[Rfam]
RNA sequence: UCAAUCGUGAAGUGGAAUCUGAAGGAAGCGAGUGGCCAACCUUUGGUCUGAGGAACACGAACUUCAUAUAAGGCUAGGUACAAUUUGGAUGAGUUUGCUAAUCAAAACAAAUUCCAUUCUACCAAAGGUUGUACAGAGUAAAUGAAGCAGAUAGAUGAAGAAAAAGAUUACGCAC
Number, nucleotide and partner (000 for none) at each position: 001u016002c015003a000004a013005u012006c000007g000008u000009g000010a000011a000012g005013u004014g000015g002016a001017a000018u000019c000020u000021g000022a000023a000024g000025g000026a000027a000028g175029c000030g173031a000032g171033u000034g000035g000036c166037c000038a000039a000040c000041c160042u159043u158044u157045g156046g152047u151048c150049u149050g148051a000052g000053g000054a000055a000056c000057a000058c000059g000060a000061a000062c147063u146064u145065c144066a143067u142068a000069u000070a000071a000072g000073g139074c138075u137076a000077g000078g134079u133080a132081c131082a130083a129084u000085u000086u000087g115088g114089a113090u000091g000092a000093g108094u107095u106096u105097g000098c000099u000100a000101a000102u000103c000104a000105a096106a095107a094108c093109a000110a000111a000112u000113u089114c088115c087116a000117u000118u000119c000120u000121a000122c000123c000124a000125a000126a000127g000128g000129u083130u082131g081132u080133a079134c078135a000136g000137a075138g074139u073140a000141a000142a067143u066144g065145a064146a063147g062148c050149a049150g048151a047152u046153a000154g000155a000156u045157g044158a043159a042160g041161a000162a000163a000164a000165a000166g036167a000168u000169u000170a000171c032172g000173c030174a000175c028
Shown here is a 175-nucleotide sequence from Natronobacillus azotifigens, a member of the family "Group II catalytic intron D1-D4-3". Lineage of the source: Bacteria > Bacilli > Caryophanales > Bacillaceae > Natronobacillus. The match comes from Rfam's covariance-model search (122 bits).